[Rfam]
RNA sequence: CCUGCUACCGUCGGGUCGCAGGCAGGAAUGUGGUCCGCGCGACCGGGCGCGGACUGAACCACCCA
Numbered sequence: 001c002c003u004g005c006u007a008c009c010g011u012c013g014g015g016u017c018g019c020a021g022g023c024a025g026g027a028a029u030g031u032g033g034u035c036c037g038c039g040c041g042a043c044c045g046g047g048c049g050c051g052g053a054c055u056g057a058a059c060c061a062c063c064c065a
Stems, first nucleotide, its partner, number of pairs: 001022005025060002032055009
Rfam assigns this 65-nucleotide RNA sequence from Halalkalicoccus jeotgali to the family "eL15-Euryarchaeota ribosomal protein leader". Rfam's curators put it in the seed alignment. NCBI's taxonomy places the organism under Archaea, Methanobacteriota, Halobacteriales, Halalkalicoccaceae, Halalkalicoccus jeotgali. The family's RNA type in Rfam is cis-regulatory leader. On this family, see Eckert and Weinberg, BMC Microbiol 2020: "Discovery of 20 novel ribosomal leader candidates in bacteria and archaea".